[Rfam]
RNA sequence: GCCUCUGUAGCUCAAUGGAAGAGCAGUUCCGUCCUAAGGAAAGGGUUGGGGGUUCGACUCCCUCCAGGGGCA
Numbered sequence: 001g002c003c004u005c006u007g008u009a010g011c012u013c014a015a016u017g018g019a020a021g022a023g024c025a026g027u028u029c030c031g032u033c034c035u036a037a038g039g040a041a042a043g044g045g046u047u048g049g050g051g052g053u054u055c056g057a058c059u060c061c062c063u064c065c066a067g068g069g070g071c072a
Stems, first nucleotide, its partner, number of pairs: 001071007010024004027041004048064005

The family of this 72-nucleotide RNA from Microbacterium sp. CH12i is "tRNA". It is annotated as a transfer RNA. A search with the family's covariance model found it, with a score of 58 bits. Rfam links the family to the GO term triplet codon-amino acid adaptor activity. The source organism's lineage runs through Bacteria, Bacillati, Actinomycetota, Actinomycetes and Microbacterium.